Shown here is a 252-nucleotide RNA from Bacillus thuringiensis, a member of the family "T-box leader". Pairs were carried over by alignment from the consensus structure, which is taken from published work. By type it is a cis-regulatory leader.
RNA sequence: UGAAAGACGAUGAUAAGGAAAAGUAGUAUAUACUAUAAUCCAAAGCGAGUCAGGGACGGUGAGAGCCUGAUGAGGCGGUAUAUGUGAAGAACACCUUGGAGUUGCUAACCGAAAUUGAAUCUUGUAUUCAAGAGUAGACUUAGACGGGAAUCCGGCCUGUUACAAACCGGGAAGUAUGUAUUACAUACGAGUUAAAGUUGGUCUUUAUGACAAAUUGGGUGGUACCGCGAAGUUUAACCUUUCGUCCCUUUA
Numbered sequence: 001u002g003a004a005a006g007a008c009g010a011u012g013a014u015a016a017g018g019a020a021a022a023g024u025a026g027u028a029u030a031u032a033c034u035a036u037a038a039u040c041c042a043a044a045g046c047g048a049g050u051c052a053g054g055g056a057c058g059g060u061g062a063g064a065g066c067c068u069g070a071u072g073a074g075g076c077g078g079u080a081u082a083u084g085u086g087a088a089g090a091a092c093a094c095c096u097u098g099g100a101g102u103u104g105c106u107a108a109c110c111g112a113a114a115u116u117g118a119a120u121c122u123u124g125u126a127u128u129c130a131a132g133a134g135u136a137g138a139c140u141u142a143g144a145c146g147g148g149a150a151u152c153c154g155g156c157c158u159g160u161u162a163c164a165a166a167c168c169g170g171g172a173a174g175u176a177u178g179u180a181u182u183a184c185a186u187a188c189g190a191g192u193u194a195a196a197g198u199u200g201g202u203c204u205u206u207a208u209g210a211c212a213a214a215u216u217g218g219g220u221g222g223u224a225c226c227g228c229g230a231a232g233u234u235u236a237a238c239c240u241u242u243c244g245u246c247c248c249u250u251u252a
Base pairs, nucleotide, nucleotide: 007102008101015097016096017095018094026085027084028083029082030081031080039073040072049071050070051069052068053067054066105143106142107141108140145159146158147157193207194206195205196204197203217248218247219246227245228244229243230242231241